RNA sequence: GCAGUACAAACUGAUCAGGCUACAUUCAUUUUCAAAAAGAUGAUGUUAAGAAAAUGGUGUGCAUGCCGGGCCGGUCAAUUACCGGCAGCAGAUGAGACGAUGAUUCAUACAUCUGUGGGACAGUA
Numbered sequence: 001g002c003a004g005u006a007c008a009a010a011c012u013g014a015u016c017a018g019g020c021u022a023c024a025u026u027c028a029u030u031u032u033c034a035a036a037a038a039g040a041u042g043a044u045g046u047u048a049a050g051a052a053a054a055u056g057g058u059g060u061g062c063a064u065g066c067c068g069g070g071c072c073g074g075u076c077a078a079u080u081a082c083c084g085g086c087a088g089c090a091g092a093u094g095a096g097a098c099g100a101u102g103a104u105u106c107a108u109a110c111a112u113c114u115g116u117g118g119g120a121c122a123g124u125a
Base pairs, nucleotide, nucleotide: 010124011123012122013121016119018067019066020065022060023059024058025057026056070086071085072084073083074082088116089115090114091113092112093111
RNA: NiCo (Nickel/Cobalt) riboswitch aptamer